[Rfam]
Shown here is a 277-nucleotide RNA sequence from Mesocricetus auratus, a member of the family "Mason-Pfizer monkey virus packaging signal". The base pairs follow the family's consensus structure, which was predicted with PFOLD. By type it is a cis-regulatory element. Rfam's curators write: This family represents a group of sequences that are related to the Mason-Pfizer monkey virus (MPMV) packaging signal. The packaging signal is located in the 5' UTR and is required for specific RNA encapsidation. Gene Ontology term of the family: viral genome packaging.

RNA sequence: UGGUGCCCAACAUGGAGACCCAGGUUCGAGGGCUUCAGUGAAGAACGUUGCUCAGGAGAGCCGGCCAUAUCAAAAAGAAAAGAAAUAGAGGUAGUUACAAGAUGGAGCCUGCCACAGCAACAAAGACAUCGGUAAGUGAGCGACCAUAUGGGACAAGAAAUGAGUCAACAUGAAUUGUUUGUUGAAGGCCUCAAGAAGGCACUUAAGGCACAAGGGAUUAGGUUUAAAACACAGAAUUUGUUAAAGUUUUUUGUCUUUAUUAAGGAAGUUUGUUCCU
Numbered sequence: 001u002g003g004u005g006c007c008c009a010a011c012a013u014g015g016a017g018a019c020c021c022a023g024g025u026u027c028g029a030g031g032g033c034u035u036c037a038g039u040g041a042a043g044a045a046c047g048u049u050g051c052u053c054a055g056g057a058g059a060g061c062c063g064g065c066c067a068u069a070u071c072a073a074a075a076a077g078a079a080a081a082g083a084a085a086u087a088g089a090g091g092u093a094g095u096u097a098c099a100a101g102a103u104g105g106a107g108c109c110u111g112c113c114a115c116a117g118c119a120a121c122a123a124a125g126a127c128a129u130c131g132g133u134a135a136g137u138g139a140g141c142g143a144c145c146a147u148a149u150g151g152g153a154c155a156a157g158a159a160a161u162g163a164g165u166c167a168a169c170a171u172g173a174a175u176u177g178u179u180u181g182u183u184g185a186a187g188g189c190c191u192c193a194a195g196a197a198g199g200c201a202c203u204u205a206a207g208g209c210a211c212a213a214g215g216g217a218u219u220a221g222g223u224u225u226a227a228a229a230c231a232c233a234g235a236a237u238u239u240g241u242u243a244a245a246g247u248u249u250u251u252u253g254u255c256u257u258u259a260u261u262a263a264g265g266a267a268g269u270u271u272g273u274u275c276c277u
Stems, first nucleotide, its partner, number of pairs: 006032003014027003037048001038046002086132001088129001091127002095122001096120001101115001104112001140154001144151002162203001164200003211253008221239002224236002263277005